Rfam assigns this 119-nucleotide RNA from Camphora micrantha to the family "MIR390 microRNA precursor family".
For this family Rfam cites "Computational prediction of miRNAs in Arabidopsis thaliana" (Adai et al., Genome Res, 2005).
Rfam 15.1 lists 649 matches to the family in 206 species.
It scores 109 bits against the family's covariance model.
RNA sequence: UGGAAGAAUUUAUGAAGCUCAGGAGGGAUAGCGCCAUAUAUGAUAAUGGGUUCAUGUAACUUCAAAUUUUCUGUAUUCAUUGGUGGCGCUAUCCAUCCUGAGUUCCAUGGUUUCUUCUU
Dot-bracket structure: .........(.....(((((((((.((((((((((.................................................)))))))))).))))))))).....).........